Overview: Shown here is a 147-nucleotide sequence from Thiomonas bhubaneswarensis, a member of the family "ZMP/ZTP riboswitch aptamer (pfl RNA motif)". Pairs were carried over by alignment from the consensus structure, which is taken from published work.
[Rfam]
RNA sequence: UAUAGGCUGCACGACUGGCGAUAGAGACCUGCGACAUGCGUGGUCUCGAGGUGGGACGAACCACCGGGGAGUGCUGGAUUUCGAGCGCAGUGUUUCACUUUGCAGAAGAGUGAAACACCGCGCUAGCCGUUCGCCUGGGCCAGCGCC
Numbered sequence: 001u002a003u004a005g006g007c008u009g010c011a012c013g014a015c016u017g018g019c020g021a022u023a024g025a026g027a028c029c030u031g032c033g034a035c036a037u038g039c040g041u042g043g044u045c046u047c048g049a050g051g052u053g054g055g056a057c058g059a060a061c062c063a064c065c066g067g068g069g070a071g072u073g074c075u076g077g078a079u080u081u082c083g084a085g086c087g088c089a090g091u092g093u094u095u096c097a098c099u100u101u102g103c104a105g106a107a108g109a110g111u112g113a114a115a116c117a118c119c120g121c122g123c124u125a126g127c128c129g130u131u132c133g134c135c136u137g138g139g140c141c142a143g144c145g146c147c
Base pairs, nucleotide, nucleotide: 004079007076009074010073011072012071015068016067017135018134019133020132021131051064052063053062054061124142126140127139128138